ABC transporter regulator: a 78-nucleotide RNA sequence from Enterobacteriaceae bacterium RIT714.
A search with the family's covariance model found it, with a score of 86 bits.
By type it is a cis-regulatory element.
Taxonomically the source falls in Enterobacteriaceae (Bacteria, Pseudomonadota, Gammaproteobacteria, Enterobacterales).
RNA sequence: GUUACCCUUCGUGAUGUGGUUAUUGCAGUCAUAAUUGAUUGAUUGCACAGGGCAAUAUUUUAUUGCCCUUAUAUUUUA
Numbered sequence: 001g002u003u004a005c006c007c008u009u010c011g012u013g014a015u016g017u018g019g020u021u022a023u024u025g026c027a028g029u030c031a032u033a034a035u036u037g038a039u040u041g042a043u044u045g046c047a048c049a050g051g052g053c054a055a056u057a058u059u060u061u062a063u064u065g066c067c068c069u070u071a072u073a074u075u076u077u078a
Base pairs, nucleotide, nucleotide: 025046026045027044028043029042030041031040049069050068051067052066053065054064055063056062057061